[Rfam]
RNA sequence: GUUGGGUAUAGUGGUGUAUAUCUGUAAGCUAAACUUCUGAGUGACUGAAUGUAGGACGAUAUGAGUUAUAAGAUUGUGAUUUAGGACUUUCUUAUGUAGAGAGUCGGUCUUAUUCAAGUGCUGAGUUAACAUUCGUUGGAGGAUGUAAGUCCUUUGACAAGGUUAUUAACGAAGUGGGCAACGCGUGAGGCUGGCAACAGAGCAGCGAAAACCACUCGCUUAGUACGGUGAUUGAGAUAGCUGGCUUGAGUAAGAACCUACUUCUGCUUAUAAUAAUAGUUAUCGGACGAAAUUCUUU
Dot-bracket structure: ((((((((((......)))))))....(((.........)))))).((((.(.(..(((((...(((((((....((((..((....((.(((((.(...((((((((((.(.(((.(((((((((((((.((.((((((((((....)))))))))))).)))).......(((((......(((....(((....)))....)))....))))).)))))))))..))).).))...))))))))).)))))))..))..)).)))))))))......)))))..).).))))...
Metazoan signal recognition particle RNA: a 298-nucleotide RNA sequence from Anaeromyces robustus. Rfam 15.1 lists 383,523 matches to the family in 1,221 species. The literature on the family includes a 2001 paper in J Mol Biol by Batey et al., "Structural and energetic analysis of RNA recognition by a universally conserved protein from the signal recognition particle". A search with the family's covariance model found it, with a score of 141 bits. From the family's description: The signal recognition particle (SRP) is a universally conserved ribonucleoprotein. It is involved in the co-translational targeting of proteins to membranes. The eukaryotic SRP consists of a 300-nucleotide 7S RNA and six proteins: SRPs 72, 68, 54, 19, 14, and 9. Archaeal SRP consists of a 7S RNA and homologues of the eukaryotic SRP19 and SRP54 proteins. Rfam classes the family as a non-coding RNA gene.